Shown here is a 117-nucleotide RNA sequence from Clostridium cellulovorans, a member of the family "FMN riboswitch aptamer (RFN element)". The match comes from Rfam's covariance-model search (114 bits). The base pairs follow the family's consensus structure, which is taken from published work.

RNA sequence: UAAUAUCUUCAGGGCGGGGUGUAAUUCCCCACCGGCGGUAAAGCCCGCAAGCCGUAAAUGGCACGAUUCGGUGAGAUUCCGAAGCCGACAGUAAAGUCUGGAUGGAAGAAGGUUGAA
Numbered sequence: 001u002a003a004u005a006u007c008u009u010c011a012g013g014g015c016g017g018g019g020u021g022u023a024a025u026u027c028c029c030c031a032c033c034g035g036c037g038g039u040a041a042a043g044c045c046c047g048c049a050a051g052c053c054g055u056a057a058a059u060g061g062c063a064c065g066a067u068u069c070g071g072u073g074a075g076a077u078u079c080c081g082a083a084g085c086c087g088a089c090a091g092u093a094a095a096g097u098c099u100g101g102a103u104g105g106a107a108g109a110a111g112g113u114u115g116a117a
Base pairs, nucleotide, nucleotide: 005113006112007111008110009109010108017029018028019027031097032096033087034086035048036047037046038045043085044084053061067083068082069081070080071079089100090099091098